A member of the RNA family "mraW RNA" from Cellulomonas pakistanensis, 96 nucleotides long.
It is annotated as a cis-regulatory element.
NCBI's taxonomy places the organism under Bacteria, Actinomycetota, Micrococcales, Cellulomonadaceae, Cellulomonas.
The family's consensus secondary structure is taken from published work.

RNA sequence: GCACCACCGCCCGGCGAGACCUCCCCCCGGCAGCUCUGACGCACUUCCCCGGCGUCAGAGGGCCGGUGGGGGAUCUGGUCGGACGGCGGAGGGGCC
Numbered sequence: 001g002c003a004c005c006a007c008c009g010c011c012c013g014g015c016g017a018g019a020c021c022u023c024c025c026c027c028c029g030g031c032a033g034c035u036c037u038g039a040c041g042c043a044c045u046u047c048c049c050c051g052g053c054g055u056c057a058g059a060g061g062g063c064c065g066g067u068g069g070g071g072g073a074u075c076u077g078g079u080c081g082g083a084c085g086g087c088g089g090a091g092g093g094g095c096c
Base pairs, nucleotide, nucleotide: 011082012081013080014079015078018075019074021072022071023070024069025068027066028065029064030063031062034060035059036058037057038056039055040054041053042052